[Rfam]
RNA sequence: UUCUAAUUGGAUGAUGACUGCCACAUGUCAUGAUCUAAUUGGAUGUCAACUCCAUGAAAGAUGAAAUGCAUUGUUGUUGUCAGUGGCCAAUCAGAUAAUAACACGUGGUAGUCAUCAUCC
Numbered sequence: 001u002u003c004u005a006a007u008u009g010g011a012u013g014a015u016g017a018c019u020g021c022c023a024c025a026u027g028u029c030a031u032g033a034u035c036u037a038a039u040u041g042g043a044u045g046u047c048a049a050c051u052c053c054a055u056g057a058a059a060g061a062u063g064a065a066a067u068g069c070a071u072u073g074u075u076g077u078u079g080u081c082a083g084u085g086g087c088c089a090a091u092c093a094g095a096u097a098a099u100a101a102c103a104c105g106u107g108g109u110a111g112u113c114a115u116c117a118u119c120c
Stems, first nucleotide, its partner, number of pairs: 020109004026103001030099002033096004038091003
A member of the RNA family "MIR1520 microRNA precursor family" from Glycine max, 120 nucleotides long. Pairs were carried over by alignment from the consensus structure, which was predicted with RNAalifold. Taxonomically the source falls in Glycine subgen. Soja (Eukaryota, eudicotyledons, rosids, Papilionoideae). The family is grouped with related families in Rfam's "MIR1520 microRNA precursor clan".